[Rfam]
A member of the RNA family "Group II catalytic intron D1-D4-3" from Oceanispirochaeta sp. M1, 169 nucleotides long.
RNA sequence: UUGCUGGUAACGGCAGGGUCUGAAGGAAGCAAUAGGAAGUGAACGGUACAUAGCGAAAGCAAACCUGAUUCGGCAUAUUUGGUGGGUAACCUUGCAAAAUAUGGGAAAGCCCAAUCCCUGAUUAGAUCAAGUAUGUGUUUGAGGAUGGAAUCGUUUACAGGGAGCCAGU
Numbered sequence: 001u002u003g004c005u006g007g008u009a010a011c012g013g014c015a016g017g018g019u020c021u022g023a024a025g026g027a028a029g030c031a032a033u034a035g036g037a038a039g040u041g042a043a044c045g046g047u048a049c050a051u052a053g054c055g056a057a058a059g060c061a062a063a064c065c066u067g068a069u070u071c072g073g074c075a076u077a078u079u080u081g082g083u084g085g086g087u088a089a090c091c092u093u094g095c096a097a098a099a100u101a102u103g104g105g106a107a108a109g110c111c112c113a114a115u116c117c118c119u120g121a122u123u124a125g126a127u128c129a130a131g132u133a134u135g136u137g138u139u140u141g142a143g144g145a146u147g148g149a150a151u152c153g154u155u156u157a158c159a160g161g162g163a164g165c166c167a168g169u
Stems, first nucleotide, its partner, number of pairs: 001016006029169002041156006047149001049147003064144003068140001073136003077132007084112004090105003
The pairing is the family consensus, mapped onto this sequence. The match comes from Rfam's covariance-model search (68 bits).